[Rfam]
RNA sequence: AAUUUUAUGAAUCCAUGCAGAGAUUUCGUCAGACACCAACCCAUUAGGGCUGAUGAAACUUCCAAGAUAAGUGUUGUC
Number, nucleotide and partner (000 for none) at each position: 001a000002a077003u076004u000005u000006u073007a000008u071009g000010a000011a068012u067013c066014c000015a000016u064017g063018c000019a000020g061021a060022g059023a000024u058025u057026u056027c055028g054029u053030c052031a000032g000033a000034c000035a000036c000037c000038a000039a000040c000041c000042c000043a000044u000045u000046a000047g000048g000049g000050c000051u000052g030053a029054u028055g027056a026057a025058a024059c022060u021061u020062c000063c017064a016065a000066g013067a012068u011069a000070a000071g008072u000073g006074u000075u000076g003077u002078c000
Notes: A member of the RNA family "mir-3492 microRNA precursor family" from Schistosoma mansoni, 78 nucleotides long. Rfam links the family to the GO terms miRNA-mediated post-transcriptional gene silencing and RISC complex. Taxonomically the source falls in Schistosoma (Eukaryota, Metazoa, Platyhelminthes, Trematoda). The family's consensus secondary structure was predicted with RNAalifold. Rfam 15.1 lists 21,496 matches to the family in 13 species.